[Rfam]
RNA sequence: AUGAUAUUUUCGAGAGAUGACUUUAUAUAUUUCAAAUAAUUUAUUAUAAAGUAGCCGAAGAAGAAAGAAUAAAUUUUAGCCAAAUUUAAUUCGAAACUUUCAGGCAAAGGGAUCGAAAAUGGACA
Numbered sequence: 001a002u003g004a005u006a007u008u009u010u011c012g013a014g015a016g017a018u019g020a021c022u023u024u025a026u027a028u029a030u031u032u033c034a035a036a037u038a039a040u041u042u043a044u045u046a047u048a049a050a051g052u053a054g055c056c057g058a059a060g061a062a063g064a065a066a067g068a069a070u071a072a073a074u075u076u077u078a079g080c081c082a083a084a085u086u087u088a089a090u091u092c093g094a095a096a097c098u099u100u101c102a103g104g105c106a107a108a109g110g111g112a113u114c115g116a117a118a119a120u121g122g123a124c125a
Stems, first nucleotide, its partner, number of pairs: 006120008020052008054105003057101002061099003067092004
RNA: Glycine riboswitch aptamer